[Rfam]
Nucleotides: 131
Stems, first nucleotide, its partner, number of pairs: 004032003008028008053073008093119006100112005
Number, partner (000 for none) and nucleotide at each position: 001000a002000a003000c004032a005031u006030a007000c008028u009027u010026g011025c012024u013023u014022u015021u016000a017000u018000g019000g020000a021015a022014a023013a024012a025011g026010u027009a028008a029000u030006u031005a032004u033000a034000a035000u036000u037000u038000a039000a040000a041000u042000u043000u044000a045000g046000u047000g048000u049000a050000g051000u052000u053073u054072a055071c056070a057069a058068a059067u060066u061000c062000u063000u064000a065000u066060a067059a068058u069057u070056u071055g072054u073053a074000u075000u076000u077000a078000g079000a080000a081000a082000u083000g084000a085000u086000u087000g088000a089000a090000a091000a092000u093119a094118a095117a096116g097115g098114g099000u100112g101111g102110a103109a104108g105000u106000a107000u108104u109103u110102u111101u112100c113000a114098c115097c116096c117095u118094u119093u120000a121000a122000u123000u124000a125000u126000c127000g128000u129000a130000u131000a